This 577-nucleotide part of an RNA from Candidatus Altarchaeales archaeon WOR_SM1_SCG belongs to the Rfam family "Archaeal large subunit ribosomal RNA". Pairs were carried over by alignment from the consensus structure, which is taken from published work. Taxonomically the source falls in Candidatus Altarchaeales (Archaea, Nanobdellati, Candidatus Altarchaeota, Candidatus Altarchaeia). It scores 2664 bits against the family's covariance model.
RNA sequence: CUUCCAGCGGGACGCGAAGACCCCAUGGAGCUUUACUGCAGCUUGUUGUUGGAUUGCGGUUAUGGUCGCGCAGUGUAGGUGGGAGACACAGAUCCCGUGCUUUUGGGCACGGAGGAGUCAAAAGUGAGACACCACCCUUCUGUCACUACAAUCCUAACUCUUUAUAAGAGGACACCUACAGGUGGGCAGUUCGGCUGGGGCGGUACACCGUUGAAAACUUAUCAACGGUAUCUAAUGGUUGGCUCAGACGGGUCAGAAAUCCGUCGUAGAGGACAAGACCAAAAGCCAGCCUUACUAAAUUCUGACCAACAAAGAAUUUAGUGACGAAAGUCCAGUCUAGCGAACCCCGGUACCCCAUUGAUGGGGGUCCGGGCUGAUGAAAAAGCUACCCUGGGGAUAACUGAGUUGUCGCGGGCAAGAGUACACAUCGACCCCGCGGCUUGCUACUUCGCUGUCGGCUCUCUCUAUCCUGGGUGUGCAGAAGCACCCAAGGGUGGGGUUGUUCGCCCAUUAAAAGGGAACGUGAGCUGGGUUUAGAACGUCGCGAGACAGUUUGGCGGCAUCUACUGGAAGUGUU
Numbered sequence: 001c002u003u004c005c006a007g008c009g010g011g012a013c014g015c016g017a018a019g020a021c022c023c024c025a026u027g028g029a030g031c032u033u034u035a036c037u038g039c040a041g042c043u044u045g046u047u048g049u050u051g052g053a054u055u056g057c058g059g060u061u062a063u064g065g066u067c068g069c070g071c072a073g074u075g076u077a078g079g080u081g082g083g084a085g086a087c088a089c090a091g092a093u094c095c096c097g098u099g100c101u102u103u104u105g106g107g108c109a110c111g112g113a114g115g116a117g118u119c120a121a122a123a124g125u126g127a128g129a130c131a132c133c134a135c136c137c138u139u140c141u142g143u144c145a146c147u148a149c150a151a152u153c154c155u156a157a158c159u160c161u162u163u164a165u166a167a168g169a170g171g172a173c174a175c176c177u178a179c180a181g182g183u184g185g186g187c188a189g190u191u192c193g194g195c196u197g198g199g200g201c202g203g204u205a206c207a208c209c210g211u212u213g214a215a216a217a218c219u220u221a222u223c224a225a226c227g228g229u230a231u232c233u234a235a236u237g238g239u240u241g242g243c244u245c246a247g248a249c250g251g252g253u254c255a256g257a258a259a260u261c262c263g264u265c266g267u268a269g270a271g272g273a274c275a276a277g278a279c280c281a282a283a284a285g286c287c288a289g290c291c292u293u294a295c296u297a298a299a300u301u302c303u304g305a306c307c308a309a310c311a312a313a314g315a316a317u318u319u320a321g322u323g324a325c326g327a328a329a330g331u332c333c334a335g336u337c338u339a340g341c342g343a344a345c346c347c348c349g350g351u352a353c354c355c356c357a358u359u360g361a362u363g364g365g366g367g368u369c370c371g372g373g374c375u376g377a378u379g380a381a382a383a384a385g386c387u388a389c390c391c392u393g394g395g396g397a398u399a400a401c402u403g404a405g406u407u408g409u410c411g412c413g414g415g416c417a418a419g420a421g422u423a424c425a426c427a428u429c430g431a432c433c434c435c436g437c438g439g440c441u442u443g444c445u446a447c448u449u450c451g452c453u454g455u456c457g458g459c460u461c462u463c464u465c466u467a468u469c470c471u472g473g474g475u476g477u478g479c480a481g482a483a484g485c486a487c488c489c490a491a492g493g494g495u496g497g498g499g500u501u502g503u504u505c506g507c508c509c510a511u512u513a514a515a516a517g518g519g520a521a522c523g524u525g526a527g528c529u530g531g532g533u534u535u536a537g538a539a540c541g542u543c544g545c546g547a548g549a550c551a552g553u554u555u556g557g558c559g560g561c562a563u564c565u566a567c568u569g570g571a572a573g574u575g576u577u
Stems, first nucleotide, its partner, number of pairs: 001573007010565003014561002022395004027391002029387005035190004042182005048176001051154006058147003062143004068137001078136005085119003097110005158170004193206001194204003207229006232335002238290006244270002247265006271280002295321009323332001325330001346373005352368005404445003408442001409439007419429002456531001457529004461523001462520005469494002473488005497509004537555004541550003